[Rfam]
RNA sequence: GGCGUAGCGGGAGGCUCUGACGCGCGGUCCACACCACGGCCGCCGGGACCGCGCCGAGCCACUGGCGAGACCGACCCGCUGAUGG
Numbered sequence: 001g002g003c004g005u006a007g008c009g010g011g012a013g014g015c016u017c018u019g020a021c022g023c024g025c026g027g028u029c030c031a032c033a034c035c036a037c038g039g040c041c042g043c044c045g046g047g048a049c050c051g052c053g054c055c056g057a058g059c060c061a062c063u064g065g066c067g068a069g070a071c072c073g074a075c076c077c078g079c080u081g082a083u084g085g
Stems, first nucleotide, its partner, number of pairs: 005081007013060003022054008038072002041067004
The family of this 85-nucleotide RNA sequence is "c-di-GMP-II-GAG riboswitch aptamer". On this family, see Weinberg et al., Proc Natl Acad Sci U S A 2017: "Bioinformatic analysis of riboswitch structures uncovers variant classes with altered ligand specificity". Pairs were carried over by alignment from the consensus structure, which is taken from published work. The sequence is in the family's curated seed alignment.